[Rfam]
RNA sequence: CUGUGAGGGGAAUGAUGUAUUACUAUCGAGCUCUUAAGAUGCUGGCAUUUCUAGACUCUGCUUCAGAGAUGGACAUUCGUG
Numbered sequence: 001c002u003g004u005g006a007g008g009g010g011a012a013u014g015a016u017g018u019a020u021u022a023c024u025a026u027c028g029a030g031c032u033c034u035u036a037a038g039a040u041g042c043u044g045g046c047a048u049u050u051c052u053a054g055a056c057u058c059u060g061c062u063u064c065a066g067a068g069a070u071g072g073a074c075a076u077u078c079g080u081g
Base pairs, nucleotide, nucleotide: 002081003080004079005078006077
RNA: Small nucleolar RNA J33